[Rfam]
RNA sequence: UUUUUCCUUCGGGGUCAGGUGAAAUUCCUAACCGGCGGUGAUAGAGGAUGCCCUCUUAAGCCCGUGACCCGUUUUCGAUUCAAUCGAAAACGGUGGAUUUGGUGAAAUUCCAAAGCCGACAGUUAAAGUCUGGAUGGGAGAAGGAAGGU
Number, nucleotide and partner (000 for none) at each position: 001u000002u000003u147004u146005u145006c144007c143008u142009u141010c140011g000012g000013g000014g000015u000016c000017a029018g028019g027020u000021g000022a000023a000024a000025u000026u000027c019028c018029u017030a000031a129032c128033c118034g117035g065036c064037g063038g062039u000040g000041a000042u000043a000044g000045a000046g000047g000048a000049u000050g000051c000052c000053c000054u000055c000056u000057u000058a000059a000060g116061c115062c038063c037064g036065u035066g000067a000068c000069c093070c092071g091072u090073u000074u000075u000076c000077g000078a000079u000080u000081c000082a000083a000084u000085c000086g000087a000088a000089a000090a072091c071092g070093g069094u000095g000096g000097a000098u114099u113100u112101g111102g110103u000104g000105a000106a000107a000108u000109u000110c102111c101112a100113a099114a098115g061116c060117c034118g033119a000120c132121a131122g130123u000124u000125a000126a000127a000128g032129u031130c122131u121132g120133g000134a000135u000136g000137g000138g000139a000140g010141a009142a008143g007144g006145a005146a004147g003148g000149u000